Notes:
The family of this 206-nucleotide RNA sequence from Pongo abelii is "Small nucleolar RNA U3". The family's consensus secondary structure is taken from published work. Its Rfam clan is "U3 clan". NCBI's taxonomy places the organism under Eukaryota, Deuterostomia, Haplorrhini, Catarrhini, Pongo. Rfam describes the family as follows. Small nucleolar RNAs (snoRNAs) are involved in the processing and modification of rRNA in the nucleolus. There are two main classes of snoRNAs: the box C/D class, and the box H/ACA class. U3 snoRNA is a member of the box C/D class. Indeed, the box C/D element is a subset of the six short sequence elements found in all U3 snoRNAs, namely boxes A, A', B, C, C', and D. The U3 snoRNA secondary structure is characterised by a small 5' domain (with boxes A and A'), and a larger 3' domain (with boxes B, C, C', and D), the two domains being linked by a single-stranded hinge. Boxes B and C form the B/C motif, which appears to be exclusive to U3 snoRNAs, and boxes C' and D form the C'/D motif. The latter is functionally similar to the C/D motifs found in other snoRNAs. The 5' domain and the hinge region act as a pre-rRNA-binding domain. The 3' domain has conserved protein-binding sites. Both the box B/C and box C'/D motifs are sufficient for nuclear retention of U3 snoRNA. The box C'/D motif is also necessary for nucleolar localisation, stability and hyper-methylation of U3 snoRNA. Both box B/C and C'/D motifs are involved in specific protein interactions and are necessary for the rRNA processing functions of U3 snoRNA. Its family is annotated with RNA processing and nucleolus in the Gene Ontology.
RNA sequence: CUUUAUCCCCCCACCCCCCAAAUAAAAGGAAGAAGAAGAGUUUUUAAAUGGCACAGCCAUGGAAACCACAAGGAGGAGGUUCAGUAUUCUCUCCUGAGCGUGAAGUUGGCUCUUGGUGUUGCUUCACUGCAACUGCUAUUUGCCAUUGAUGAUUGUUCUUCUCUUCCUCUAAGAGAGUAAGAGGGAGAGGAUGCAGUCUGAGUGGU
Numbered sequence: 001c002u003u004u005a006u007c008c009c010c011c012c013a014c015c016c017c018c019c020a021a022a023u024a025a026a027a028g029g030a031a032g033a034a035g036a037a038g039a040g041u042u043u044u045u046a047a048a049u050g051g052c053a054c055a056g057c058c059a060u061g062g063a064a065a066c067c068a069c070a071a072g073g074a075g076g077a078g079g080u081u082c083a084g085u086a087u088u089c090u091c092u093c094c095u096g097a098g099c100g101u102g103a104a105g106u107u108g109g110c111u112c113u114u115g116g117u118g119u120u121g122c123u124u125c126a127c128u129g130c131a132a133c134u135g136c137u138a139u140u141u142g143c144c145a146u147u148g149a150u151g152a153u154u155g156u157u158c159u160u161c162u163c164u165u166c167c168u169c170u171a172a173g174a175g176a177g178u179a180a181g182a183g184g185g186a187g188a189g190g191a192u193g194c195a196g197u198c199u200g201a202g203u204g205g206u
Stems, first nucleotide, its partner, number of pairs: 001028001002026004040054002043050001065206005084194012098156003108144003114138004118133005159180002161177005